Rfam assigns this 58-nucleotide RNA sequence from Salinispora arenicola to the family "msiK RNA". By type it is a cis-regulatory element. Pairs were carried over by alignment from the consensus structure, which is taken from published work. The sequence is in the family's curated seed alignment.
RNA sequence: CGGUCCGUUCUUUCACUCGGAUCGUCCGGCACGUUCCUGCCGGUGAAAGGAAGCACCC
Numbered sequence: 001c002g003g004u005c006c007g008u009u010c011u012u013u014c015a016c017u018c019g020g021a022u023c024g025u026c027c028g029g030c031a032c033g034u035u036c037c038u039g040c041c042g043g044u045g046a047a048a049g050g051a052a053g054c055a056c057c058c
Stems, first nucleotide, its partner, number of pairs: 009050007026043006